[Rfam]
RNA sequence: GGUUGGGCAGGAUUCGGUUCCGAAUUCUGUUUUCAAGAUUUUGAGCUUUAAGGGUGGGAAGCU
Numbered sequence: 001g002g003u004u005g006g007g008c009a010g011g012a013u014u015c016g017g018u019u020c021c022g023a024a025u026u027c028u029g030u031u032u033u034c035a036a037g038a039u040u041u042u043g044a045g046c047u048u049u050a051a052g053g054g055u056g057g058g059a060a061g062c063u
Stems, first nucleotide, its partner, number of pairs: 003036003006031011044063006
This 63-nucleotide sequence from Clostridium sp. MSTE9 belongs to the Rfam family "Na+ riboswitch aptamer (DUF1646)". Taxonomically the source falls in Clostridium (Bacteria, Bacillati, Clostridia, Clostridiaceae). A reference for the family is White et al. (2022), "Na(+) riboswitches regulate genes for diverse physiological processes in bacteria", Nat Chem Biol.